Notes:
The family of this 100-nucleotide RNA sequence from Acanthochromis polyacanthus is "Small nucleolar RNA SNORD16". Rfam classes the family as a C/D-box small nucleolar RNA. A search with the family's covariance model found it, with a score of 85 bits.

[Rfam]
RNA sequence: UGCCGUGAUGGUGUAAUUUGCGUCUGAUCCUGUGAACAGUGACAGUUGCCUGCUGUCUCUAAGCUGGCACAGAGUCUUGAUGUGUGUUAAAUUCUGAGCA
Numbered sequence: 001u002g003c004c005g006u007g008a009u010g011g012u013g014u015a016a017u018u019u020g021c022g023u024c025u026g027a028u029c030c031u032g033u034g035a036a037c038a039g040u041g042a043c044a045g046u047u048g049c050c051u052g053c054u055g056u057c058u059c060u061a062a063g064c065u066g067g068c069a070c071a072g073a074g075u076c077u078u079g080a081u082g083u084g085u086g087u088u089a090a091a092u093u094c095u096g097a098g099c100a
Stems, first nucleotide, its partner, number of pairs: 001100003021082004030072005039064002041057005

Rfam links the family to the GO terms nucleolus and RNA processing.